Shown here is a 68-nucleotide RNA sequence from Chanos chanos, a member of the family "mir-2985 microRNA precursor family". The family's consensus secondary structure was predicted with RNAalifold. Rfam 15.1 lists 2,000 matches to the family in 637 species. RNAs can be post-transcriptional modified, in micro RNAs (miRNA) editing of pre-mRNA is a common process. Lineage of the source: Eukaryota > Opisthokonta > Anotophysi > Chanidae > Chanos.
RNA sequence: GGCAUUAAGGUGGGUGGGAUAAUAUAACAAUUCUGCUGUUGUUAUAGUAUUCCACCUACCCUGAUACC
Numbered sequence: 001g002g003c004a005u006u007a008a009g010g011u012g013g014g015u016g017g018g019a020u021a022a023u024a025u026a027a028c029a030a031u032u033c034u035g036c037u038g039u040u041g042u043u044a045u046a047g048u049a050u051u052c053c054a055c056c057u058a059c060c061c062u063g064a065u066a067c068c
Stems, first nucleotide, its partner, number of pairs: 004065004009060009019050003023046009
About this RNA
A search with the family's covariance model found it, with a score of 69 bits. The literature on the family includes a 2011 paper in BMC Genomics by Gunaratne et al., "Song exposure regulates known and novel microRNAs in the zebra finch auditory forebrain".